RNA sequence: CGAGCCGGCCGGGCGGCCGCGACGAGGGGCGACUCUCGCCGAGGAAAGUCCGGGCUCCACAGGGCAGGGUGGUCGGUAACGCCGACCCGGGGUGACCCGCGGGACAGUGCCACAGAAAACAAACCGCCACCUCUGGUGGUAAGGGUGAAACGGUGAGGUAAGAGCUCACCAGCGCCCACGGCGACGUGGGCGGCUAGGUAAACCCCACCCGGAGCAAGGUCAAGAAGGAGAGCCGACAGGCCCUCCGCGCAGGUGCUCGAGGGCUGCUCGCCCGAGCCUGCGGGUAGACCGCUGGAGGCCGCCGGCAACGGCGGCCCGAGAUGGAUGGCCGUCGCCCGCCGCAAGGCGGGAACAGAACCCGGCUUACAAGCCGGCUCGUCCG
Numbered sequence: 001c002g003a004g005c006c007g008g009c010c011g012g013g014c015g016g017c018c019g020c021g022a023c024g025a026g027g028g029g030c031g032a033c034u035c036u037c038g039c040c041g042a043g044g045a046a047a048g049u050c051c052g053g054g055c056u057c058c059a060c061a062g063g064g065c066a067g068g069g070u071g072g073u074c075g076g077u078a079a080c081g082c083c084g085a086c087c088c089g090g091g092g093u094g095a096c097c098c099g100c101g102g103g104a105c106a107g108u109g110c111c112a113c114a115g116a117a118a119a120c121a122a123a124c125c126g127c128c129a130c131c132u133c134u135g136g137u138g139g140u141a142a143g144g145g146u147g148a149a150a151c152g153g154u155g156a157g158g159u160a161a162g163a164g165c166u167c168a169c170c171a172g173c174g175c176c177c178a179c180g181g182c183g184a185c186g187u188g189g190g191c192g193g194c195u196a197g198g199u200a201a202a203c204c205c206c207a208c209c210c211g212g213a214g215c216a217a218g219g220u221c222a223a224g225a226a227g228g229a230g231a232g233c234c235g236a237c238a239g240g241c242c243c244u245c246c247g248c249g250c251a252g253g254u255g256c257u258c259g260a261g262g263g264c265u266g267c268u269c270g271c272c273c274g275a276g277c278c279u280g281c282g283g284g285u286a287g288a289c290c291g292c293u294g295g296a297g298g299c300c301g302c303c304g305g306c307a308a309c310g311g312c313g314g315c316c317c318g319a320g321a322u323g324g325a326u327g328g329c330c331g332u333c334g335c336c337c338g339c340c341g342c343a344a345g346g347c348g349g350g351a352a353c354a355g356a357a358c359c360c361g362g363c364u365u366a367c368a369a370g371c372c373g374g375c376u377c378g379u380c381c382g
Stems, first nucleotide, its partner, number of pairs: 001378009011367001012333007020041002023038006046365003050362005055214004062269004067210005072086005087101001088099004102205002107203002109199003124144002126140006152170006172194001173192008218290004228281001230279001232277002261273004297316008
Dot-bracket structure: (((((((((.((((((((.((.((((((....)))))).))....[[[.[[[[[((((...[[[[.((((((((((.....)))))(((((....)))).)((...(((((............((((((((...))))))..)).......((((((.......)))))).(((((((((....)))))))).)..)))..)))))))))))))...((((......(.(.((...........................((((.]]]]))))..)).).).....))))......((((((((....))))))))..........)))))))........................]]]]]]]].)..)))))))))....

Source information
A member of the RNA family "Bacterial RNase P class A" from Actinomadura barringtoniae, 382 nucleotides long. On this family, see Beauregard et al., RNA Biol 2013: "Identification and characterization of small RNAs in Yersinia pestis". A search with the family's covariance model found it, with a score of 294 bits. Lineage of the source: Bacteria > Actinomycetota > Streptosporangiales > Thermomonosporaceae > Actinomadura. By type it is a ribozyme.